Rfam assigns this 215-nucleotide RNA sequence from Pteropus vampyrus to the family "Small nucleolar RNA U3". Rfam's curators put it in the seed alignment. On this family, see Zwieb, Nucleic Acids Res 1997: "The uRNA database". The family has 87 seed sequences and 19,072 matches in Rfam 15.1. The family's RNA type in Rfam is C/D-box small nucleolar RNA. The source organism's lineage runs through Eukaryota, Chordata, Euteleostomi, Pteropodinae and Pteropus. Clan: U3 clan. Pairs were carried over by alignment from the consensus structure, which is taken from published work. From the family's description: Small nucleolar RNAs (snoRNAs) are involved in the processing and modification of rRNA in the nucleolus.
RNA sequence: AAGACUAGACUUUUAGGAACCAUUUCUACAUAGUUUCUUACUGGAGAAAUUUCUCUGAACGUACGGAACACCGGAAACCAGGAGGAGGAGGCGUGGCGUUCCCUCCUAAGUGCGAAGCGGGCUCUUGGUGUUGCUUCUGCAACUAUCAUUUGCCAUUGGUGACUGUUCUUCUCUUCCCUUGGGAGAGUAAGAGGGAGGGAUGCUGUCUGAGUGGU
Numbered sequence: 001a002a003g004a005c006u007a008g009a010c011u012u013u014u015a016g017g018a019a020c021c022a023u024u025u026c027u028a029c030a031u032a033g034u035u036u037c038u039u040a041c042u043g044g045a046g047a048a049a050u051u052u053c054u055c056u057g058a059a060c061g062u063a064c065g066g067a068a069c070a071c072c073g074g075a076a077a078c079c080a081g082g083a084g085g086a087g088g089a090g091g092c093g094u095g096g097c098g099u100u101c102c103c104u105c106c107u108a109a110g111u112g113c114g115a116a117g118c119g120g121g122c123u124c125u126u127g128g129u130g131u132u133g134c135u136u137c138u139g140c141a142a143c144u145a146u147c148a149u150u151u152g153c154c155a156u157u158g159g160u161g162a163c164u165g166u167u168c169u170u171c172u173c174u175u176c177c178c179u180u181g182g183g184a185g186a187g188u189a190a191g192a193g194g195g196a197g198g199g200a201u202g203c204u205g206u207c208u209g210a211g212u213g214g215u
Stems, first nucleotide, its partner, number of pairs: 002042002007036005014028005051067003056063001077215004096203004101199007110166003120154003126148004130143005169190002171187007